[Rfam]
RNA sequence: GUGGAAAAACCCCAAAUCCCCGCCAGGGGAUUGAAAC
Numbered sequence: 001g002u003g004g005a006a007a008a009a010c011c012c013c014a015a016a017u018c019c020c021c022g023c024c025a026g027g028g029g030a031u032u033g034a035a036a037c
Stems, first nucleotide, its partner, number of pairs: 017030005
Notes: The family of this 37-nucleotide RNA sequence from Roseiflexus castenholzii is "CRISPR RNA direct repeat element". The base pairs follow the family's consensus structure, which was predicted with WAR. Taxonomically the source falls in Roseiflexus castenholzii (Bacteria, Chloroflexia, Roseiflexaceae, Roseiflexus). Rfam links the family to the GO term defense response. Rfam 15.1 lists 91 matches to the family in 2 species.